Rfam assigns this 131-nucleotide sequence from Podarcis muralis to the family "Small nucleolar RNA SNORA3/SNORA45 family". By type it is an H/ACA-box small nucleolar RNA. Rfam's curators write: The members of this family belong to the H/ACA class of snoRNAs which are thought to guide the sites of modification of uridines to pseudouridines. This family includes mouse snoMBI-28 and human homologues ACA3 (SNORA3) and ACA3-2 (SNORA45). Both ACA3 and ACA3-2 share the same host gene. MBI-28, ACA3 and ACA3-2 are all predicted to guide the pseudouridylation of residues in 28S rRNA. The family is grouped with related families in Rfam's "SNORA3 clan". The family's consensus secondary structure was predicted with RNAalifold. The family has 6 seed sequences and 2,080 matches in Rfam 15.1. On this family, see Huttenhofer et al., EMBO J 2001: "RNomics: an experimental approach that identifies 201 candidates for novel, small, non-messenger RNAs in mouse". Taxonomically the source falls in Podarcis (Eukaryota, Craniata, Dipnotetrapodomorpha, Tetrapoda).

[Rfam]
RNA sequence: ACUGAGACUAGAGUCACAUCUAGAUAUUGUCAGUUAUCAUGGUGUGCUAUAGUGCUCAGAGAGUGACAACUGACUUUUAUUCACUGACUGUGCUCCGCAUAGUACAGUCAGCCACCAGGUUAGUAACAGAG
Numbered sequence: 001a002c003u004g005a006g007a008c009u010a011g012a013g014u015c016a017c018a019u020c021u022a023g024a025u026a027u028u029g030u031c032a033g034u035u036a037u038c039a040u041g042g043u044g045u046g047c048u049a050u051a052g053u054g055c056u057c058a059g060a061g062a063g064u065g066a067c068a069a070c071u072g073a074c075u076u077u078u079a080u081u082c083a084c085u086g087a088c089u090g091u092g093c094u095c096c097g098c099a100u101a102g103u104a105c106a107g108u109c110a111g112c113c114a115c116c117a118g119g120u121u122a123g124u125a126a127c128a129g130a131g
Base pairs, nucleotide, nucleotide: 002059003058004057005056006055007053008052009051012048013047015046016045017044018043019042020041023038024037025036026035070123071122072121073120074119075118076117084111085110086109087108089106090105091104092103093102094101
Dot-bracket structure: .((((((((..((.((((((..((((........))))..))))))))..))).)))))..........(((((((.......((((.((((((......)))))).)))).....)))))))........